[Rfam]
Nucleotides: 131
Stems, first nucleotide, its partner, number of pairs: 003055005008049002011046001013044002015041002018039006067124004071119001073117004081113006091102001
Number, partner (000 for none) and nucleotide at each position: 001000a002000a003055c004054u005053u006052u007051u008049u009048g010000u011046u012000g013044c014043c015041c016040u017000g018039u019038u020037c021036a022035c023034u024000u025000u026000u027000u028000g029000a030000a031000a032000c033000u034023a035022g036021u037020g038019a039018a040016a041015g042000u043014g044013g045000a046011a047000u048009c049008a050000a051007a052006a053005a054004g055003g056000c057000a058000u059000a060000a061000a062000u063000a064000a065000a066000u067124g068123c069122u070121u071119u072000u073117c074116a075115g076114c077000u078000u079000u080000u081113u082112c083111c084110u085109a086108c087000c088000c089000u090000u091102a092000a093000a094000u095000u096000u097000g098000g099000u100000a101000c102091u103000u104000u105000a106000a107000u108086g109085u110084a111083g112082g113081a114076g115075u116074u117073g118000u119071a120000u121070a122069a123068g124067u125000a126000a127000c128000a129000a130000a131000a
The family of this 131-nucleotide sequence from Sciurus carolinensis is "Small nucleolar RNA SNORA13". Rfam describes the family as follows. ACA13 is a member of the H/ACA class of snoRNA that guide the sites of modification of uridines to pseudouridines. It is annotated as an H/ACA-box small nucleolar RNA.